The record is a 351-nucleotide RNA sequence from Mycobacterium canetti, which matches "mcr7 sRNA" in Rfam. The family's consensus secondary structure was predicted with RNAfold. Mcr7 sRNA encoded by the mcr7 gene modulates translation of the tatC mRNA and impacts the activity of the Twin Arginine Translocation (Tat) protein secretion apparatus. Rfam classes the family as a small RNA. A reference for the family is DiChiara et al. (2010), "Multiple small RNAs identified in Mycobacterium bovis BCG are also expressed in Mycobacterium tuberculosis and Mycobacterium smegmatis", Nucleic Acids Res.
[Rfam]
RNA sequence: CCGGCGGCCCGACACAUGCAGCCGAGUUGGCUGGCUCGGAAGGGGGACAGAGUUGACCAUGACAGCGAGUGUGGCCAAGGUGACAGCUGCACGCCCGGAGCCAAGCGCGGCGUGGGCUGAAGCCCGGCGGCGGGUACGCCAACGCCGCGAGGACAUGCUGCGCCAUCCUGCAUUUCUGUCCAAGCAGCUCCCUCCCGAACCAGCGCACGACGACGGCGUCGCGGCCGUCUACGACAUCGCGGUUGCGCGUCGGCGCCGACCCGCUUGAGCGGUCCCCGACGCGUCAACGUCGCGCCGGCUGCCCGGUAAACCGGCAAUCGACGACCGAGCCUUGGCGGGCGCGUCGCGCUC
Numbered sequence: 001c002c003g004g005c006g007g008c009c010c011g012a013c014a015c016a017u018g019c020a021g022c023c024g025a026g027u028u029g030g031c032u033g034g035c036u037c038g039g040a041a042g043g044g045g046g047a048c049a050g051a052g053u054u055g056a057c058c059a060u061g062a063c064a065g066c067g068a069g070u071g072u073g074g075c076c077a078a079g080g081u082g083a084c085a086g087c088u089g090c091a092c093g094c095c096c097g098g099a100g101c102c103a104a105g106c107g108c109g110g111c112g113u114g115g116g117c118u119g120a121a122g123c124c125c126g127g128c129g130g131c132g133g134g135u136a137c138g139c140c141a142a143c144g145c146c147g148c149g150a151g152g153a154c155a156u157g158c159u160g161c162g163c164c165a166u167c168c169u170g171c172a173u174u175u176c177u178g179u180c181c182a183a184g185c186a187g188c189u190c191c192c193u194c195c196c197g198a199a200c201c202a203g204c205g206c207a208c209g210a211c212g213a214c215g216g217c218g219u220c221g222c223g224g225c226c227g228u229c230u231a232c233g234a235c236a237u238c239g240c241g242g243u244u245g246c247g248c249g250u251c252g253g254c255g256c257c258g259a260c261c262c263g264c265u266u267g268a269g270c271g272g273u274c275c276c277c278g279a280c281g282c283g284u285c286a287a288c289g290u291c292g293c294g295c296c297g298g299c300u301g302c303c304c305g306g307u308a309a310a311c312c313g314g315c316a317a318u319c320g321a322c323g324a325c326c327g328a329g330c331c332u333u334g335g336c337g338g339g340c341g342c343g344u345c346g347c348g349c350u351c
Stems, first nucleotide, its partner, number of pairs: 003229007010221004021217004026211004030204005036198004041193004045181008054172002058170002061167002065163003068159006075152002079124003084119005090114006096107002125147004129140004238348006244341003248337006254281002257278001258275001261272004283330002289325004296320003300316004305311001